Lysine riboswitch aptamer: a 151-nucleotide RNA sequence from Anaerobranca californiensis.
The organism belongs to Anaerobranca californiensis, within Bacteria.
The match comes from Rfam's covariance-model search (80 bits).
Riboswitches are metabolite binding domains within certain messenger RNAs that serve as precision sensors for their corresponding targets. Allosteric rearrangement of mRNA structure is mediated by ligand binding, and this results in modulation of gene expression. This family includes riboswitches that sense lysine in a number of genes involved in lysine metabolism, including lysC.

[Rfam]
RNA sequence: AUGCGUCAAAGGGGCUGCGACUUGUCAAGAGUACCUAGUGGGAAAGGGGCGGUCGCCGAAAUACUAUGAAAAUAGUAUUGGGCCUAUGUUUAAUAGACAUAGGACUGUCACUGAAAAUUAGCCCAUUUUUCAGUGGAGUACUUUACGCAUU
Numbered sequence: 001a002u003g004c005g006u007c008a009a010a011g012g013g014g015c016u017g018c019g020a021c022u023u024g025u026c027a028a029g030a031g032u033a034c035c036u037a038g039u040g041g042g043a044a045a046g047g048g049g050c051g052g053u054c055g056c057c058g059a060a061a062u063a064c065u066a067u068g069a070a071a072a073u074a075g076u077a078u079u080g081g082g083c084c085u086a087u088g089u090u091u092a093a094u095a096g097a098c099a100u101a102g103g104a105c106u107g108u109c110a111c112u113g114a115a116a117a118u119u120a121g122c123c124c125a126u127u128u129u130u131c132a133g134u135g136g137a138g139u140a141c142u143u144u145a146c147g148c149a150u151u
Stems, first nucleotide, its partner, number of pairs: 008144004017056006024050003034041002060079008080106002083103008108136010